[Rfam]
RNA sequence: CCACUCUGAAAAGCAGGACGGCGACCGCCGUCCUCGCCCAAGGUGAAAAUCGGCGACGCCCGCGACGGGCGGCGCCGGUGAAGCUCUCAGGCCGGAUGACAGAGGGGGAGU
Numbered sequence: 001c002c003a004c005u006c007u008g009a010a011a012a013g014c015a016g017g018a019c020g021g022c023g024a025c026c027g028c029c030g031u032c033c034u035c036g037c038c039c040a041a042g043g044u045g046a047a048a049a050u051c052g053g054c055g056a057c058g059c060c061c062g063c064g065a066c067g068g069g070c071g072g073c074g075c076c077g078g079u080g081a082a083g084c085u086c087u088c089a090g091g092c093c094g095g096a097u098g099a100c101a102g103a104g105g106g107g108g109a110g111u
Base pairs, nucleotide, nucleotide: 001107002106004104005103006102007101008100015034016033017032018031036092037091038090040087043086045084049079050078051077052076053075054074055073